A member of the RNA family "DUF805b RNA", 35 nucleotides long. It is annotated as a cis-regulatory element.

RNA sequence: AAGGAGAACGCUGAAAAUCCUUAACAGAGUAGGCA
Numbered sequence: 001a002a003g004g005a006g007a008a009c010g011c012u013g014a015a016a017a018u019c020c021u022u023a024a025c026a027g028a029g030u031a032g033g034c035a
Base pairs, nucleotide, nucleotide: 002021003020004019005018010034011033012032
Dot-bracket structure: .((((....[[[.....))))..........]]].